A member of the RNA family "c-di-AMP riboswitch aptamer (ydaO/yuaA leader)" from Sulfobacillus acidophilus, 132 nucleotides long. It scores 63 bits against the family's covariance model. Lineage of the source: Bacteria > Bacillati > Bacillota > Clostridia > Sulfobacillus acidophilus. For this family Rfam cites "New RNA motifs suggest an expanded scope for riboswitches in bacterial genetic control" (Barrick et al., Proc Natl Acad Sci U S A, 2004).
[Rfam]
RNA sequence: GUCCAACCCACGCCGAAUUUUCCGAUGCUCGGAAAUACGGAGGAUCCUCAUUGGGGGUGAAGGUCAAAGACCGGGCAAUUUUCCUGUUGCCUAACCCGUAAGCUAACUCCGGAGGCAAUAACAGGAAAGGGU
Numbered sequence: 001g002u003c004c005a006a007c008c009c010a011c012g013c014c015g016a017a018u019u020u021u022c023c024g025a026u027g028c029u030c031g032g033a034a035a036u037a038c039g040g041a042g043g044a045u046c047c048u049c050a051u052u053g054g055g056g057g058u059g060a061a062g063g064u065c066a067a068a069g070a071c072c073g074g075g076c077a078a079u080u081u082u083c084c085u086g087u088u089g090c091c092u093a094a095c096c097c098g099u100a101a102g103c104u105a106a107c108u109c110c111g112g113a114g115g116c117a118a119u120a121a122c123a124g125g126a127a128a129g130g131g132u
Stems, first nucleotide, its partner, number of pairs: 012116003019035006038111005047054002055097003063071003074091004